[Rfam]
RNA sequence: ACGGAUGCCUUGACGGGCCGCACCGAACGAAAAGCGACCCGAUCCCACACCCCG
Number, nucleotide and partner (000 for none) at each position: 001a000002c025003g024004g023005a000006u000007g000008c000009c000010u000011u000012g000013a043014c041015g040016g039017g038018c000019c036020g035021c034022a000023c004024c003025g002026a000027a000028c000029g000030a000031a000032a000033a000034g021035c020036g019037a000038c017039c016040c015041g014042a000043u013044c000045c000046c000047a000048c000049a000050c000051c000052c000053c000054g000